[Rfam]
RNA sequence: UUGUUUACUGGCGCUGCAUCAUCAAGAUUCACGUUUGAUGCCCUAUAUAUAUAUGUUUUGUGUAUAUAUAUACCUUUGGGGAAUGAGAAUCUUGAUGAUGCUGCAUUAGAAAUCAA
Numbered sequence: 001u002u003g004u005u006u007a008c009u010g011g012c013g014c015u016g017c018a019u020c021a022u023c024a025a026g027a028u029u030c031a032c033g034u035u036u037g038a039u040g041c042c043c044u045a046u047a048u049a050u051a052u053a054u055g056u057u058u059u060g061u062g063u064a065u066a067u068a069u070a071u072a073c074c075u076u077u078g079g080g081g082a083a084u085g086a087g088a089a090u091c092u093u094g095a096u097g098a099u100g101c102u103g104c105a106u107u108a109g110a111a112a113u114c115a116a
Stems, first nucleotide, its partner, number of pairs: 010107002013104002016101015032085002
Rfam assigns this 116-nucleotide RNA from Centaurea solstitialis to the family "mir-172 microRNA precursor family".
Pairs were carried over by alignment from the consensus structure, which was predicted with PFOLD.
The literature on the family includes a 2004 paper in Mol Cell by Jones-Rhoades and Bartel, "Computational Identification of Plant MicroRNAs and Their Targets, Including a Stress-Induced miRNA".
About the family: mir-172 has been experimentally verified in Arabidopsis thaliana. This family is thought to target mRNAs coding for APETALA2-like transcription factors. The mature sequence is excised from the 3' arm of the hairpin.
Lineage of the source: Eukaryota > Euphyllophyta > eudicotyledons > Pentapetalae > Centaurea.
Its family is annotated with miRNA-mediated post-transcriptional gene silencing and RISC complex in the Gene Ontology.
Rfam 15.1 lists 2,076 matches to the family in 219 species.